[Rfam]
RNA: raiA RNA
Organism: Olsenella sp. An188
RNA sequence: CUCGACCAGGUCUGUGGUUGCGGGAGGGGCGGGCGUCUGCCCGCGCCGACCAAGUCCAUGCCAGACGAGGGCAAAGGGAUCCACGUAAGCCCGGGCGUGCGCGCCCGUGCGAUCAUGGCUCGUCCUAGAGGUAAGUCGUACCGCCCGUCAUACGCAUGAGGCAUCCGGCCUCGCGGGCGAGAGGGGCUAGAGUGGAGGCGCCGCGGCGCCGAAAGCGACGCUCCCGGUACGCGGGUGUGGGGGCAAAGACCAGGUCAGCUGGGAGAG
Numbered sequence: 001c002u003c004g005a006c007c008a009g010g011u012c013u014g015u016g017g018u019u020g021c022g023g024g025a026g027g028g029g030c031g032g033g034c035g036u037c038u039g040c041c042c043g044c045g046c047c048g049a050c051c052a053a054g055u056c057c058a059u060g061c062c063a064g065a066c067g068a069g070g071g072c073a074a075a076g077g078g079a080u081c082c083a084c085g086u087a088a089g090c091c092c093g094g095g096c097g098u099g100c101g102c103g104c105c106c107g108u109g110c111g112a113u114c115a116u117g118g119c120u121c122g123u124c125c126u127a128g129a130g131g132u133a134a135g136u137c138g139u140a141c142c143g144c145c146c147g148u149c150a151u152a153c154g155c156a157u158g159a160g161g162c163a164u165c166c167g168g169c170c171u172c173g174c175g176g177g178c179g180a181g182a183g184g185g186g187c188u189a190g191a192g193u194g195g196a197g198g199c200g201c202c203g204c205g206g207c208g209c210c211g212a213a214a215g216c217g218a219c220g221c222u223c224c225c226g227g228u229a230c231g232c233g234g235g236u237g238u239g240g241g242g243g244c245a246a247a248g249a250c251c252a253g254g255u256c257a258g259c260u261g262g263g264a265g266a267g
Base pairs, nucleotide, nucleotide: 001267002266003265006262007261008260009259012258013257014256015252016251017250018249019248058238059237060236061071064124065123066122067121068120069119080118081117085113091107093105094104116245137231138230139229140228141227142179143178144177145176146175147174148173183224184223185222186221192216193215198209199208200207